Shown here is a 311-nucleotide RNA from a Nitrososphaeraceae archaeon, a member of the family "Archaeal signal recognition particle RNA".
Taxonomically the source falls in Nitrososphaeraceae (Archaea, Nitrososphaerota, Nitrososphaeria, Nitrososphaerales).
The literature on the family includes a 2001 paper in J Mol Biol by Batey et al., "Structural and energetic analysis of RNA recognition by a universally conserved protein from the signal recognition particle".

RNA sequence: AGACAGGGAGGAUCGGGGUGUUAGUCGUACCCCAUACCAGAAACCGACUUCAUGCUGGGAUCAGCAACCGCUGGGUAAAUCUACUGGUACAAGGUACCUGCUUGCCUAGCUGAAAUGAAGUCAUGCCGUGCCGGAUGGUUAUGAGCAGCAUGUCAUGCGAAGGCAUGGUCUUGACUGCGUAUAGUCGAAAUGGGUGAGGUCCGGGAGGGAGCAACUCUAAGAUUGCAUGGUUAUGCUGGCACGUCUACGUGGCAGAUCUCGCAAGGCUUGAGAGGGGGCUUUGGACCUUUAUUGGAACCAGUGGGCUGUCU
Dot-bracket structure: ((((((....(((((((((((.....)))))))...((((.(..........).)))))))).....(((((((.(..(...(....(.((((((.(((.(..((((.((.(.(.(...((((((.(((((((((((((((((.((((((.(((((((....))))))).).).)))).).(((((.....((((....(((....)))....))))...))))).)))))))).))))))))....)))))).).).).)).))))..)...))).)))))).)..)....)..).))))))).))))))